RNA: Alphaproteobacteria transfer-messenger RNA
RNA sequence: GGCCUUCCCUUUGCCGCGAUCCCUCCCUAUAUUCGGCCCGUCAGCUUGACUGACUAUGGUGAUAAACAGGCGAUGCAAUAAGCCGUUCGGACCCGGGGGCGGUACCCGGCGCCUCCACCAAAAACCGCUGCUCAGAUAGGAGCGGUUUUUGCUGGGGGCGAAAUAGGAUCGACGAAGGUGUAAAGAUCGUACUUUUGCCCGGCAUUGUACCACCGUUAUCGGGCUAAACUUGUAGUUGCAAACGACAACUAUGCGGAAGCACGUCUCGCUGCGUAAGCAGUGCGAUAGCUUCAAAUUAAGCCCUAGAGGUUCGCACUUCUAGGCGGGGUCCGGAGGCACCUGGCAACAGAAGCCUCCACU
Numbered sequence: 001g002g003c004c005u006u007c008c009c010u011u012u013g014c015c016g017c018g019a020u021c022c023c024u025c026c027c028u029a030u031a032u033u034c035g036g037c038c039c040g041u042c043a044g045c046u047u048g049a050c051u052g053a054c055u056a057u058g059g060u061g062a063u064a065a066a067c068a069g070g071c072g073a074u075g076c077a078a079u080a081a082g083c084c085g086u087u088c089g090g091a092c093c094c095g096g097g098g099g100c101g102g103u104a105c106c107c108g109g110c111g112c113c114u115c116c117a118c119c120a121a122a123a124a125c126c127g128c129u130g131c132u133c134a135g136a137u138a139g140g141a142g143c144g145g146u147u148u149u150u151g152c153u154g155g156g157g158g159c160g161a162a163a164u165a166g167g168a169u170c171g172a173c174g175a176a177g178g179u180g181u182a183a184a185g186a187u188c189g190u191a192c193u194u195u196u197g198c199c200c201g202g203c204a205u206u207g208u209a210c211c212a213c214c215g216u217u218a219u220c221g222g223g224c225u226a227a228a229c230u231u232g233u234a235g236u237u238g239c240a241a242a243c244g245a246c247a248a249c250u251a252u253g254c255g256g257a258a259g260c261a262c263g264u265c266u267c268g269c270u271g272c273g274u275a276a277g278c279a280g281u282g283c284g285a286u287a288g289c290u291u292c293a294a295a296u297u298a299a300g301c302c303c304u305a306g307a308g309g310u311u312c313g314c315a316c317u318u319c320u321a322g323g324c325g326g327g328g329u330c331c332g333g334a335g336g337c338a339c340c341u342g343g344c345a346a347c348a349g350a351a352g353c354c355u356c357c358a359c360u
Stems, first nucleotide, its partner, number of pairs: 040054005058199005070190005083178002087175003093109005110160007200215003205226001207224001210222002326341004332357006